[Rfam]
RNA sequence: GUAAUUUGAGGUGGGAGAUUUCGUCCAGCCCACACGCCGAUGGUGAGACAGGGGAAACCCGAGAGAUGCAGGAGAAUUGGACGCCUGCCAAAUUAC
Number, nucleotide and partner (000 for none) at each position: 001g096002u095003a094004a093005u092006u091007u090008g089009a000010g000011g033012u032013g031014g030015g029016a000017g000018a000019u000020u000021u000022c000023g082024u081025c080026c079027a078028g000029c015030c014031c013032a012033c011034a000035c063036g000037c053038c052039g000040a000041u000042g000043g000044u000045g000046a000047g000048a000049c000050a000051g000052g038053g037054g000055a000056a000057a000058c000059c000060c000061g000062a000063g035064a000065g000066a000067u000068g088069c087070a086071g085072g084073a000074g000075a000076a000077u000078u027079g026080g025081a024082c023083g000084c072085c071086u070087g069088c068089c008090a007091a006092a005093u004094u003095a002096c001
Shown here is a 96-nucleotide RNA, a member of the family "skipping-rope RNA". The sequence is in the family's curated seed alignment. Rfam classes the family as a small RNA.